This 111-nucleotide RNA from Listeria innocua belongs to the Rfam family "Listeria LhrC". The family is grouped with related families in Rfam's "LhrC clan". A reference for the family is Christiansen et al. (2006), "Identification of small Hfq-binding RNAs in Listeria monocytogenes", RNA. The family has 12 seed sequences and 13 matches in Rfam 15.1.
RNA sequence: AUAAGCUAACAACAAGCAAAACAUUUUCAUUUCUUUCCCUUUUUAGAAUGAAAAUCCCAAACUCCCUUUUAGCUAGUGCGGUUUACUCCCUUUUUCCGCGCUAGUUUUUUC
Numbered sequence: 001a002u003a004a005g006c007u008a009a010c011a012a013c014a015a016g017c018a019a020a021a022c023a024u025u026u027u028c029a030u031u032u033c034u035u036u037c038c039c040u041u042u043u044u045a046g047a048a049u050g051a052a053a054a055u056c057c058c059a060a061a062c063u064c065c066c067u068u069u070u071a072g073c074u075a076g077u078g079c080g081g082u083u084u085a086c087u088c089c090c091u092u093u094u095u096c097c098g099c100g101c102u103a104g105u106u107u108u109u110u111c
Base pairs, nucleotide, nucleotide: 023055024054025053026052027051028050029049030048031047033046073104074103075102076101077100078099079098080097081096